[Rfam]
RNA sequence: UAAUCAAUCGAUAUAUACACUCGUAUAAUAGCAGGAAUAUGGCCUGCAAGUUUCUACCAGAUGACCGUUAAUCAUCUGACUACGGGUAAGCGUAUAAAAUGG
Numbered sequence: 001u002a003a004u005c006a007a008u009c010g011a012u013a014u015a016u017a018c019a020c021u022c023g024u025a026u027a028a029u030a031g032c033a034g035g036a037a038u039a040u041g042g043c044c045u046g047c048a049a050g051u052u053u054c055u056a057c058c059a060g061a062u063g064a065c066c067g068u069u070a071a072u073c074a075u076c077u078g079a080c081u082a083c084g085g086g087u088a089a090g091c092g093u094a095u096a097a098a099a100u101g102g
Stems, first nucleotide, its partner, number of pairs: 019087007029049001031047005058078007

Purine riboswitch aptamer: a 102-nucleotide RNA sequence from Niallia circulans. Rfam describes the family as follows. Riboswitches are metabolite binding domains within certain messenger RNAs that serve as precision sensors for their corresponding targets. Allosteric rearrangement of mRNA structure is mediated by ligand binding, and this results in modulation of gene expression. Lineage of the source: Bacteria > Bacillota > Caryophanales > Bacillaceae > Niallia. Pairs were carried over by alignment from the consensus structure, which is taken from published work. It scores 89 bits against the family's covariance model.